[Rfam]
RNA sequence: UUGCACCGGCAAAUCUAUACGACCAGCUCCUGUUGAACCCCCCCAGGUCCGGAAGGAAGCAAGGGUAGACGGUAGAGCGGUGCGAUAUACGAUUUGCCAUUU
Numbered sequence: 001u002u003g004c005a006c007c008g009g010c011a012a013a014u015c016u017a018u019a020c021g022a023c024c025a026g027c028u029c030c031u032g033u034u035g036a037a038c039c040c041c042c043c044c045a046g047g048u049c050c051g052g053a054a055g056g057a058a059g060c061a062a063g064g065g066u067a068g069a070c071g072g073u074a075g076a077g078c079g080g081u082g083c084g085a086u087a088u089a090c091g092a093u094u095u096g097c098c099a100u101u102u
Stems, first nucleotide, its partner, number of pairs: 008098008016089004020084002022081002